Source information
A member of the RNA family "Enterococcus sRNA 2410" from Enterococcus sp. PFB1-1, 180 nucleotides long.
[Rfam]
RNA sequence: UUAGCUAUUUUAGAUAGGUUUGUAUUCAUGAUUUCAUGGAUGCAAACACCAAACUUGGUUUUGUAUCUAUGAUGGUUAGAGAAUUUCGUUAUGACUUUCAGCCACGUAGAGAAUAUCUAUAGUGGCUUUUAUUUUAUCCUUUUUUGGGAAGUAUUCACUGUAGAUUUUCUGUAAAUUUAC
Numbered sequence: 001u002u003a004g005c006u007a008u009u010u011u012a013g014a015u016a017g018g019u020u021u022g023u024a025u026u027c028a029u030g031a032u033u034u035c036a037u038g039g040a041u042g043c044a045a046a047c048a049c050c051a052a053a054c055u056u057g058g059u060u061u062u063g064u065a066u067c068u069a070u071g072a073u074g075g076u077u078a079g080a081g082a083a084u085u086u087c088g089u090u091a092u093g094a095c096u097u098u099c100a101g102c103c104a105c106g107u108a109g110a111g112a113a114u115a116u117c118u119a120u121a122g123u124g125g126c127u128u129u130u131a132u133u134u135u136a137u138c139c140u141u142u143u144u145u146g147g148g149a150a151g152u153a154u155u156c157a158c159u160g161u162a163g164a165u166u167u168u169c170u171g172u173a174a175a176u177u178u179a180c
Stems, first nucleotide, its partner, number of pairs: 001079007011069006018047012050063004083152005089146001091144001100127006107119003153176003157172002
On this family, see Sinel et al., Sci Rep 2017: "Small RNAs in vancomycin-resistant Enterococcus faecium involved in daptomycin response and resistance". Rfam's curators write: Produced as 2 transcripts on Northern blot. Expressed in mid, late exponential and early stationary phases of growth. Expression remained uniform under daptomycin exposure. It scores 74 bits against the family's covariance model.